The family of this 50-nucleotide sequence from Agrobacterium fabrum is "Guanidine-II riboswitch aptamer (mini-ykkC)".
Simpler in structure and has fewer highly conserved nucleotide positions than the ykkC-yxkD leader.
RNA sequence: GCGCGAGGACGACCUCGGCCAAAUCGGCGACAGCAUGCGGGACGGCCCGG
Numbered sequence: 001g002c003g004c005g006a007g008g009a010c011g012a013c014c015u016c017g018g019c020c021a022a023a024u025c026g027g028c029g030a031c032a033g034c035a036u037g038c039g040g041g042a043c044g045g046c047c048c049g050g
Base pairs, nucleotide, nucleotide: 001020004017005016006015007014008013038049039048040047041046